Shown here is an 86-nucleotide sequence from Dromaius novaehollandiae, a member of the family "mir-135 microRNA precursor family".
RNA sequence: CCUCCGCUGCGGCCUAUGGCUUUUUAUUCCUAUGUGAUUGCUUUUCCGAACUCAUGUAGGGCGAAAAGCCAUGGGCUGCCCGGAGG
Numbered sequence: 001c002c003u004c005c006g007c008u009g010c011g012g013c014c015u016a017u018g019g020c021u022u023u024u025u026a027u028u029c030c031u032a033u034g035u036g037a038u039u040g041c042u043u044u045u046c047c048g049a050a051c052u053c054a055u056g057u058a059g060g061g062c063g064a065a066a067a068g069c070c071a072u073g074g075g076c077u078g079c080c081c082g083g084a085g086g
Stems, first nucleotide, its partner, number of pairs: 002085005009079015028061010